[Rfam]
RNA sequence: CACGUAAGCGCAAGAUGCUUACGUAGGAGGAAAUUGCGUCCUUGAAGGAGUGAUUUCCUCCCACGUAAGCAUCUCGCGCUUACGUGG
Numbered sequence: 001c002a003c004g005u006a007a008g009c010g011c012a013a014g015a016u017g018c019u020u021a022c023g024u025a026g027g028a029g030g031a032a033a034u035u036g037c038g039u040c041c042u043u044g045a046a047g048g049a050g051u052g053a054u055u056u057c058c059u060c061c062c063a064c065g066u067a068a069g070c071a072u073c074u075c076g077c078g079c080u081u082a083c084g085u086g087g
Stems, first nucleotide, its partner, number of pairs: 001086011013074009023064002026061012040047001

Shown here is an 87-nucleotide sequence from Gossypium laxum, a member of the family "MIR7486 microRNA precursor family". The base pairs follow the family's consensus structure, which was predicted with RNAalifold.